[Rfam]
RNA sequence: UGCGCAGCGCGUGUUUCAUGACGAUGUUCGGAAAGCUCACGCCUUUUAGACGCGCGGUGCGGAUAUAUUGCGCGGUCAUGACUUCGGCCAUCGACGCCCGCGUCAUCCGCGCGAUGUAGCCCAUGCCAUACAGCGCAAUGGUCAGCACCGGCAGAAAGAAGUUCUCGAAAUUUGCGUUC
Numbered sequence: 001u002g003c004g005c006a007g008c009g010c011g012u013g014u015u016u017c018a019u020g021a022c023g024a025u026g027u028u029c030g031g032a033a034a035g036c037u038c039a040c041g042c043c044u045u046u047u048a049g050a051c052g053c054g055c056g057g058u059g060c061g062g063a064u065a066u067a068u069u070g071c072g073c074g075g076u077c078a079u080g081a082c083u084u085c086g087g088c089c090a091u092c093g094a095c096g097c098c099c100g101c102g103u104c105a106u107c108c109g110c111g112c113g114a115u116g117u118a119g120c121c122c123a124u125g126c127c128a129u130a131c132a133g134c135g136c137a138a139u140g141g142u143c144a145g146c147a148c149c150g151g152c153a154g155a156a157a158g159a160a161g162u163u164c165u166c167g168a169a170a171u172u173u174g175c176g177u178u179c
Base pairs, nucleotide, nucleotide: 005140006139009136010135011134012133015130016128021124028123030121031120038113040111041110042109046105048103051100052099054097055075057073058072059071060070061069062068082096084094085093086092145179147177149174150173151172154165156163157162
RNA: Ruegeria cis52 sRNA
Organism: Tropicibacter naphthalenivorans